Background:
Fluoride riboswitch aptamer (crcB RNA motif): an 87-nucleotide RNA from Bombella intestini. A search with the family's covariance model found it, with a score of 40 bits. Pairs were carried over by alignment from the consensus structure, which is taken from published work. The organism belongs to Bombella, within Bacteria.
Nucleotides: 087
Base pairs, nucleotide, nucleotide: 010026011025012024013023016078017077018076020074045068046067047066
Number, partner (000 for none) and nucleotide at each position: 001000c002000g003000a004000a005000u006000a007000u008000a009000c010026g011025g012024u013023g014000a015000u016078g017077g018076a019000u020074u021000a022000c023013c024012a025011c026010c027000g028000g029000g030000c031000c032000a033000u034000u035000g036000g037000g038000c039000c040000a041000a042000a043000c044000c045068g046067c047066c048000a049000c050000c051000c052000g053000a054000g055000g056000a057000g058000u059000c060000g061000g062000g063000a064000a065000a066047g067046g068045c069000u070000g071000a072000u073000g074020a075000u076018u077017c078016c079000u080000g081000c082000c083000a084000a085000u086000a087000a